[Rfam]
RNA sequence: UAUUUAUGGGAUAGGGAUACACCCUGUGCUCGCUCUAUUUUGGAGUAGUGAACACAGCUGGUGGUAUCUCUAUUUCAAAAAUGUA
Numbered sequence: 001u002a003u004u005u006a007u008g009g010g011a012u013a014g015g016g017a018u019a020c021a022c023c024c025u026g027u028g029c030u031c032g033c034u035c036u037a038u039u040u041u042g043g044a045g046u047a048g049u050g051a052a053c054a055c056a057g058c059u060g061g062u063g064g065u066a067u068c069u070c071u072a073u074u075u076c077a078a079a080a081a082u083g084u085a
Stems, first nucleotide, its partner, number of pairs: 008076005015070001016068002019065002021062003024057003028053001030051002
Background
Rfam assigns this 85-nucleotide sequence from Pseudolycoriella hygida to the family "mir-317 microRNA precursor family". Gene Ontology terms of the family: RISC complex and miRNA-mediated post-transcriptional gene silencing. The family has 25 seed sequences and 153 matches in Rfam 15.1.